The family of this 445-nucleotide sequence from Probosciger aterrimus is "Vertebrate telomerase RNA".
By type it is a non-coding RNA gene.
Clan: Telomerase clan.
A reference for the family is Antal et al. (2002), "Analysis of the structure of human telomerase RNA in vivo", Nucleic Acids Res.
The match comes from Rfam's covariance-model search (192 bits).
Its family is annotated with telomerase activity, telomerase catalytic core complex and telomere maintenance via telomerase in the Gene Ontology.
The base pairs follow the family's consensus structure, which is taken from published work.
About the family: Telomerase is a ribonucleoprotein reverse transcriptase that synthesises telomeric DNA. Telomerase RNAs differ greatly in sequence and structure between vertebrates, ciliates and yeasts, but they share a 5' pseudoknot structure close to the template sequence. Vertebrate telomerase RNAs have a 3' H/ACA snoRNA-like domain.
[Rfam]
RNA sequence: CGUGGCCGGUGGGGAGGCUCCAAUCUUACUAACCCUAAUGGCUGCCGCUCUGCUCCCCGCACCCGUCUGCUGUUUUACUCGCUGACUUUCAGCGGACGGGGGGAGCAACCUGGGGUGGUGGGGGGAAGGGGCUUACCAUCAAAAAACGUCAGCGACGGGUCUCCCCAGCCCGGCCCGCCCUGGCCUGGGGUCUCCGUCACCCCACGCAGUCGGGGGCCUGCCGCGGAGGCUCCCCCCGCCGCACCGUACGGAGGCCGCGGUCGGCCGGUUCGCGCCACUGCCGCCGCGAAGAGUUCGUCUCUGUCAGCCUCGGUGGCGGUCGGGAGCGGAAGGGCACGUCCCCGCGCCGGGGGCCCCAGCAGAGCAAAACGGGAGCGGCGUCCUCGGGACAACCGCCGCGCUUCCCUUACCCAUGGGAUGCGCGGACGGCGCCGCUCCGACAAGC
Numbered sequence: 001c002g003u004g005g006c007c008g009g010u011g012g013g014g015a016g017g018c019u020c021c022a023a024u025c026u027u028a029c030u031a032a033c034c035c036u037a038a039u040g041g042c043u044g045c046c047g048c049u050c051u052g053c054u055c056c057c058c059g060c061a062c063c064c065g066u067c068u069g070c071u072g073u074u075u076u077a078c079u080c081g082c083u084g085a086c087u088u089u090c091a092g093c094g095g096a097c098g099g100g101g102g103g104a105g106c107a108a109c110c111u112g113g114g115g116u117g118g119u120g121g122g123g124g125g126a127a128g129g130g131g132c133u134u135a136c137c138a139u140c141a142a143a144a145a146a147c148g149u150c151a152g153c154g155a156c157g158g159g160u161c162u163c164c165c166c167a168g169c170c171c172g173g174c175c176c177g178c179c180c181u182g183g184c185c186u187g188g189g190g191u192c193u194c195c196g197u198c199a200c201c202c203c204a205c206g207c208a209g210u211c212g213g214g215g216g217c218c219u220g221c222c223g224c225g226g227a228g229g230c231u232c233c234c235c236c237c238g239c240c241g242c243a244c245c246g247u248a249c250g251g252a253g254g255c256c257g258c259g260g261u262c263g264g265c266c267g268g269u270u271c272g273c274g275c276c277a278c279u280g281c282c283g284c285c286g287c288g289a290a291g292a293g294u295u296c297g298u299c300u301c302u303g304u305c306a307g308c309c310u311c312g313g314u315g316g317c318g319g320u321c322g323g324g325a326g327c328g329g330a331a332g333g334g335c336a337c338g339u340c341c342c343c344g345c346g347c348c349g350g351g352g353g354c355c356c357c358a359g360c361a362g363a364g365c366a367a368a369a370c371g372g373g374a375g376c377g378g379c380g381u382c383c384u385c386g387g388g389a390c391a392a393c394c395g396c397c398g399c400g401c402u403u404c405c406c407u408u409a410c411c412c413a414u415g416g417g418a419u420g421c422g423c424g425g426a427c428g429g430c431g432c433c434g435c436u437c438c439g440a441c442a443a444g445c
Stems, first nucleotide, its partner, number of pairs: 002174002005171001011165004016161005052106005064098009081153006087146003185359007215340003221333002234324003238320003243314004256288005262283004267276003290302004373437010396425005403418004